The family of this 417-nucleotide RNA from Lachnellula cervina is "Group I catalytic intron". NCBI's taxonomy places the organism under Eukaryota, Dikarya, Pezizomycotina, leotiomyceta, Lachnellula. The literature on the family includes a 1990 paper in Annu Rev Biochem by Cech, "Self-splicing of group I introns". From the family's description: Group I catalytic introns are large self-splicing ribozymes. Rfam links the family to the GO term Group I intron splicing.
[Rfam]
RNA sequence: CAAAUGUCAUUAUGAGGUGCCACAGUUAAGUAAUAGCUGUGUAUAAAUAUCACUAUAUGCUGGAAACCCCUUAGAACUAAUUUAUUUAGCACCCUCUCUCCAUCCAACGUAGUGGAGCUUCGCAGAAGAGAGGUUUUUGUAAAACAUAAGUUAAAUAACUUAGCUUAGGACAAUCAGCAGGAAACCAAGGGAUAAUCUUGAGAUUAUCUUAGUAGGAUCCUCAGAGACUACACGUGAUACAUCUCCCUUCUUUUCCAACCCCAUUCCGCCUUAAAACCUCUAAGGAAGAGGACUGUUUUAGUCCUUAAUUUUUUGCUGUUUUAGACUUUACCCUUUACAUAUAAGGGAUAAGAAUAUUAAUAGGCUGUAAAUUGAGAAGGGAGUAAAUAUAUAGUCCAGAAUUAAAGAAAUUUAAUG
Numbered sequence: 001c002a003a004a005u006g007u008c009a010u011u012a013u014g015a016g017g018u019g020c021c022a023c024a025g026u027u028a029a030g031u032a033a034u035a036g037c038u039g040u041g042u043a044u045a046a047a048u049a050u051c052a053c054u055a056u057a058u059g060c061u062g063g064a065a066a067c068c069c070c071u072u073a074g075a076a077c078u079a080a081u082u083u084a085u086u087u088a089g090c091a092c093c094c095u096c097u098c099u100c101c102a103u104c105c106a107a108c109g110u111a112g113u114g115g116a117g118c119u120u121c122g123c124a125g126a127a128g129a130g131a132g133g134u135u136u137u138u139g140u141a142a143a144a145c146a147u148a149a150g151u152u153a154a155a156u157a158a159c160u161u162a163g164c165u166u167a168g169g170a171c172a173a174u175c176a177g178c179a180g181g182a183a184a185c186c187a188a189g190g191g192a193u194a195a196u197c198u199u200g201a202g203a204u205u206a207u208c209u210u211a212g213u214a215g216g217a218u219c220c221u222c223a224g225a226g227a228c229u230a231c232a233c234g235u236g237a238u239a240c241a242u243c244u245c246c247c248u249u250c251u252u253u254u255c256c257a258a259c260c261c262c263a264u265u266c267c268g269c270c271u272u273a274a275a276a277c278c279u280c281u282a283a284g285g286a287a288g289a290g291g292a293c294u295g296u297u298u299u300a301g302u303c304c305u306u307a308a309u310u311u312u313u314u315g316c317u318g319u320u321u322u323a324g325a326c327u328u329u330a331c332c333c334u335u336u337a338c339a340u341a342u343a344a345g346g347g348a349u350a351a352g353a354a355u356a357u358u359a360a361u362a363g364g365c366u367g368u369a370a371a372u373u374g375a376g377a378a379g380g381g382a383g384u385a386a387a388u389a390u391a392u393a394g395u396c397c398a399g400a401a402u403u404a405a406a407g408a409a410a411u412u413u414a415a416u417g
Stems, first nucleotide, its partner, number of pairs: 005024003010019001048239004053234001058179006069169003180220002185215001191208007224397001226396005243383010402415005